[Rfam]
RNA sequence: AAAGCAUACCCCGCGGCGACCGCAAGAACAUUCGCGUUGUCGCCGCUGUAAUUGACAUUUUGGUCCUGCC
Numbered sequence: 001a002a003a004g005c006a007u008a009c010c011c012c013g014c015g016g017c018g019a020c021c022g023c024a025a026g027a028a029c030a031u032u033c034g035c036g037u038u039g040u041c042g043c044c045g046c047u048g049u050a051a052u053u054g055a056c057a058u059u060u061u062g063g064u065c066c067u068g069c070c
Stems, first nucleotide, its partner, number of pairs: 013046006022069003026065002028040003050059003